Rfam assigns this 83-nucleotide RNA from Anseranas semipalmata to the family "mir-181 microRNA precursor family". The literature on the family includes a 2003 paper in RNA by Lagos-Quintana et al., "New microRNAs from mouse and human". The base pairs follow the family's consensus structure, which was predicted with PFOLD.
Nucleotides: 083
Base pairs, nucleotide, nucleotide: 002082003081004079005078007076008075014069015068016067017066018065019064020063021062022061025060026059027058028057029056030055031054033053034052035051036050
Number, partner (000 for none) and nucleotide at each position: 001000a002082g003081g004079c005078c006000c007076c008075g009000g010000c011000g012000a013000a014069c015068a016067u017066u018065c019064a020063a021062c022061g023000c024000u025060g026059u027058c028057g029056g030055u031054g032000a033053g034052u035051u036050u037000g038000g039000u040000g041000g042000c043000u044000g045000a046000g047000c048000u049000c050036a051035a052034a053033c054031c055030g056029c057028c058027g059026a060025c061022c062021g063020u064019u065018g066017g067016g068015u069014g070000c071000g072000c073000g074000c075008c076007g077000u078005g079004g080000c081003c082002c083000g